[Rfam]
This 117-nucleotide RNA from Alkalicoccobacillus porphyridii belongs to the Rfam family "ylbH leader". It scores 69 bits against the family's covariance model. Gene Ontology term of the family: regulation of gene expression. Rfam's curators write: This family is a putative regulatory RNA structure that is found upstream of the ylbH gene in B. subtilis and related low GC Gram-positive bacteria. Taxonomically the source falls in Alkalicoccobacillus (Bacteria, Bacillati, Bacillota, Bacilli).
RNA sequence: ACAAAAAAUCCCGCAGUCAGAUAGACUGCGGGCGCCUAUACACAUUUAUAUGCGUUUGGCUAUGGGAGAGGAGAAACCGGAGAGAGAACUUAUGGGGAAAGUAAGCCUUCUCCGUGG
Numbered sequence: 001a002c003a004a005a006a007a008a009u010c011c012c013g014c015a016g017u018c019a020g021a022u023a024g025a026c027u028g029c030g031g032g033c034g035c036c037u038a039u040a041c042a043c044a045u046u047u048a049u050a051u052g053c054g055u056u057u058g059g060c061u062a063u064g065g066g067a068g069a070g071g072a073g074a075a076a077c078c079g080g081a082g083a084g085a086g087a088a089c090u091u092a093u094g095g096g097g098a099a100a101g102u103a104a105g106c107c108u109u110c111u112c113c114g115u116g117g
Stems, first nucleotide, its partner, number of pairs: 011031008035066005040055002043052002078114004084109003089105004

Background: The literature on the family includes a 2004 paper in Proc Natl Acad Sci U S A by Barrick et al., "New RNA motifs suggest an expanded scope for riboswitches in bacterial genetic control".